[Rfam]
RNA: TPP riboswitch aptamer (THI element)
RNA sequence: AUUUUCUGCUAGGGGUGUCCGUUAGCCGGACUGAGAGAAGAGCGCGUAUUUUGGCUCUUUAACCCUUUGAACCUGAUCUGGUUGACACCAGCGUAGGGAAGUAGGGAGAGACGGCU
Number, nucleotide and partner (000 for none) at each position: 001a000002u000003u000004u000005u000006c104007u103008g102009c101010u100011a066012g065013g064014g063015g000016u000017g031018u030019c029020c028021g027022u000023u000024a000025g000026c000027c021028g020029g019030a018031c017032u000033g000034a000035g000036a000037g000038a059039a058040g057041a056042g055043c000044g000045c000046g000047u000048a000049u000050u000051u000052u000053g000054g000055c042056u041057c040058u039059u038060u000061a000062a000063c014064c013065c012066u011067u000068u000069g000070a000071a000072c097073c096074u095075g094076a000077u000078c091079u090080g089081g088082u000083u000084g000085a000086c000087a000088c081089c080090a079091g078092c000093g000094u075095a074096g073097g072098g000099a000100a010101g009102u008103a007104g006105g000106g000107a000108g000109a000110g000111a000112c000113g000114g000115c000116u000